[Rfam]
RNA sequence: CUCCCCGAAAUGCCUUUAGGGGCAGCGUCGAGGUUGAGUCUUCUGGAGGUAGAGCUACCGAUAGGACUAGGGGGAGUCAAAUCCUACCGAAUCCUGACGAACUCCGAAUGCCAUUAGACAUACUCGGCAGUGAGGCUUGGGGUGCUAAGGUCCCAGGCCGAGAGGGAAAGAACCCAGACCGCCAGCUAAGGUCCCUAAAUAUAUGCUAAGUUGAACAAAGGAGGUCCAGCUGCCCAGACAGCCAGGAUGUUGGCUUGGAAGCAGCCAUUCAUUUAAAGAGUGCGUAACAGCUCACUGGUCGAGCGGCAGGGCAUCGAUAAUAAUCGGGCAUCAAGCAUAUUACCGAAGCUGCGGAUAGAAUUUAUUCUGUGGUAGGGGAGCAUUCCCGUCGGCGGAGAAGGUACCUGGCAAUGGGUGCUGGAGCGUCGGGAAAAGCAAAU
Numbered sequence: 001c002u003c004c005c006c007g008a009a010a011u012g013c014c015u016u017u018a019g020g021g022g023c024a025g026c027g028u029c030g031a032g033g034u035u036g037a038g039u040c041u042u043c044u045g046g047a048g049g050u051a052g053a054g055c056u057a058c059c060g061a062u063a064g065g066a067c068u069a070g071g072g073g074g075a076g077u078c079a080a081a082u083c084c085u086a087c088c089g090a091a092u093c094c095u096g097a098c099g100a101a102c103u104c105c106g107a108a109u110g111c112c113a114u115u116a117g118a119c120a121u122a123c124u125c126g127g128c129a130g131u132g133a134g135g136c137u138u139g140g141g142g143u144g145c146u147a148a149g150g151u152c153c154c155a156g157g158c159c160g161a162g163a164g165g166g167a168a169a170g171a172a173c174c175c176a177g178a179c180c181g182c183c184a185g186c187u188a189a190g191g192u193c194c195c196u197a198a199a200u201a202u203a204u205g206c207u208a209a210g211u212u213g214a215a216c217a218a219a220g221g222a223g224g225u226c227c228a229g230c231u232g233c234c235c236a237g238a239c240a241g242c243c244a245g246g247a248u249g250u251u252g253g254c255u256u257g258g259a260a261g262c263a264g265c266c267a268u269u270c271a272u273u274u275a276a277a278g279a280g281u282g283c284g285u286a287a288c289a290g291c292u293c294a295c296u297g298g299u300c301g302a303g304c305g306g307c308a309g310g311g312c313a314u315c316g317a318u319a320a321u322a323a324u325c326g327g328g329c330a331u332c333a334a335g336c337a338u339a340u341u342a343c344c345g346a347a348g349c350u351g352c353g354g355a356u357a358g359a360a361u362u363u364a365u366u367c368u369g370u371g372g373u374a375g376g377g378g379a380g381c382a383u384u385c386c387c388g389u390c391g392g393c394g395g396a397g398a399a400g401g402u403a404c405c406u407g408g409c410a411a412u413g414g415g416u417g418c419u420g421g422a423g424c425g426u427c428g429g430g431a432a433a434a435g436c437a438a439a440u
Base pairs, nucleotide, nucleotide: 001380002379003378004377005376006375011024012023013022014021015020026130027128028127029126030125031124032123037121038119039118040117041116044113045112046111052105053103054102059099060098063095064094065093066092070088071087072085073084074083075082134159135158136157137156138155139154140153141152142151143150164175165174166173179354180353181352182351184350185349186348190344191343192342199341201340202339203338204337205336206335220315221314224312225311226310227309229307230306231305232304233303241299242298243297244296245295247272248271249270252266253265254264273277278293282291283290355370356369357368358367359366360365381435383432384431385430386429387428388427392424393423400419401418402417403416404415405414406413407412

The family of this 440-nucleotide part of an RNA from Rufibacter ruber is "Bacterial large subunit ribosomal RNA". NCBI's taxonomy places the organism under Bacteria, Pseudomonadati, Bacteroidota, Hymenobacteraceae, Rufibacter.